[Rfam]
RNA sequence: GAAGACAGGUUAAGCCCCUGUUAAGGCCAGUAAGUCGAAGUGAACCUUCGGCUCAAAAUCAUCAAAUUGCGGGAAAGCCCUAAAGCAAUUUCAACCAAGCAGACGUGGCAACACAGUUUGUGGCACAGGUAAUGACUCGUGGUAUGGUAAAAUCGAAAUUGAUACACGUGAGUGAAUGGGUAAUCCGCAGCCAAGUACCCAGUAUAAAUACUAGGUAUGCAGUUCAUCGACUAAAUGUUGAUUGGUGUUAAAUAUAAAAAUAAUUAUAUUUAAUGCUUAAGAUAUAGUCAAACCUCAUCCGAGAGGAUGCA
Numbered sequence: 001g002a003a004g005a006c007a008g009g010u011u012a013a014g015c016c017c018c019u020g021u022u023a024a025g026g027c028c029a030g031u032a033a034g035u036c037g038a039a040g041u042g043a044a045c046c047u048u049c050g051g052c053u054c055a056a057a058a059u060c061a062u063c064a065a066a067u068u069g070c071g072g073g074a075a076a077g078c079c080c081u082a083a084a085g086c087a088a089u090u091u092c093a094a095c096c097a098a099g100c101a102g103a104c105g106u107g108g109c110a111a112c113a114c115a116g117u118u119u120g121u122g123g124c125a126c127a128g129g130u131a132a133u134g135a136c137u138c139g140u141g142g143u144a145u146g147g148u149a150a151a152a153u154c155g156a157a158a159u160u161g162a163u164a165c166a167c168g169u170g171a172g173u174g175a176a177u178g179g180g181u182a183a184u185c186c187g188c189a190g191c192c193a194a195g196u197a198c199c200c201a202g203u204a205u206a207a208a209u210a211c212u213a214g215g216u217a218u219g220c221a222g223u224u225c226a227u228c229g230a231c232u233a234a235a236u237g238u239u240g241a242u243u244g245g246u247g248u249u250a251a252a253u254a255u256a257a258a259a260a261u262a263a264u265u266a267u268a269u270u271u272a273a274u275g276c277u278u279a280a281g282a283u284a285u286a287g288u289c290a291a292a293c294c295u296c297a298u299c300c301g302a303g304a305g306g307a308u309g310c311a
Stems, first nucleotide, its partner, number of pairs: 001015001026035002057243005063237002068189006078180003190223002195218004227290001229289005245276009296309005
This 311-nucleotide sequence from Hymenoscyphus albidus belongs to the Rfam family "Group I catalytic intron". Rfam describes the family as follows. Group I catalytic introns are large self-splicing ribozymes. They catalyse their own excision from mRNA, tRNA and rRNA precursors in a wide range of organisms. The core secondary structure consists of 9 paired regions (P1-P9). These fold to essentially two domains - the P4-P6 domain (formed from the stacking of P5, P4, P6 and P6a helices) and the P3-P9 domain (formed from the P8, P3, P7 and P9 helices).